[Rfam]
Shown here is a 185-nucleotide sequence from Gelria sp. Kuro-4, a member of the family "glmS glucosamine-6-phosphate activated ribozyme aptamer".
Lineage of the source: Bacteria > Bacillati > Clostridia > Thermoanaerobacterales > Gelria.
Its family is annotated with catalytic activity and regulation of gene expression in the Gene Ontology.
The family's consensus secondary structure is taken from published work.
RNA sequence: AAACGAUCUCAAGCGCCCGAACUCCCCGGCGACGCCCGGCCGGCGGCGAACCGGCCCUCGGGGAGUUGACGAGGAAGGGGUUUAUCGAAGUCUUCGGCGGAUGCCCCUCGGGUUCUCACCGCCCGUAAGGCCUUCCUGAAAGCCCGGGAGCGAUCUCGGGGACAAAGGGAACGCCAGGUGAAAAG
Number, nucleotide and partner (000 for none) at each position: 001a000002a000003a000004c000005g000006a000007u000008c000009u000010c000011a000012a000013g000014c000015g000016c000017c000018c000019g000020a067021a066022c065023u064024c063025c062026c061027c060028g000029g058030c000031g000032a000033c000034g000035c000036c000037c000038g000039g000040c000041c000042g000043g000044c000045g000046g000047c000048g000049a000050a000051c000052c000053g000054g000055c000056c000057c000058u029059c000060g027061g026062g025063g024064a023065g022066u021067u020068g000069a000070c000071g000072a000073g000074g000075a000076a108077g107078g106079g105080g104081u000082u000083u000084a000085u097086c096087g095088a094089a000090g000091u000092c000093u000094u088095c087096g086097g085098c000099g000100g000101a000102u000103g000104c080105c079106c078107c077108u076109c125110g124111g123112g122113u121114u000115c000116u000117c000118a000119c000120c000121g113122c112123c111124c110125g109126u000127a000128a000129g175130g174131c173132c000133u171134u170135c169136c000137u000138g000139a000140a000141a000142g000143c160144c159145c158146g157147g156148g155149a154150g000151c000152g000153a000154u149155c148156u147157c146158g145159g144160g143161g000162a000163c000164a000165a000166a000167g000168g000169g135170a134171a133172c000173g131174c130175c129176a000177g000178g000179u000180g000181a000182a000183a000184a000185g000